[Rfam]
RNA sequence: AGUUUUUUUUUUCCUCGGUAGUUUACUGCCGAAGUUUUCCUCGGCAGUUAACUGCCGAAGGGUAU
Numbered sequence: 001a002g003u004u005u006u007u008u009u010u011u012u013c014c015u016c017g018g019u020a021g022u023u024u025a026c027u028g029c030c031g032a033a034g035u036u037u038u039c040c041u042c043g044g045c046a047g048u049u050a051a052c053u054g055c056c057g058a059a060g061g062g063u064a065u
Base pairs, nucleotide, nucleotide: 012061013060015058016057017056018055019054020053021052022051023050025048026047027046028045029044
The family of this 65-nucleotide RNA sequence from Medicago truncatula is "MIR2629 microRNA precursor family". The organism belongs to Medicago, within Eukaryota. It scores 69 bits against the family's covariance model. Pairs were carried over by alignment from the consensus structure, which was predicted with RNAalifold.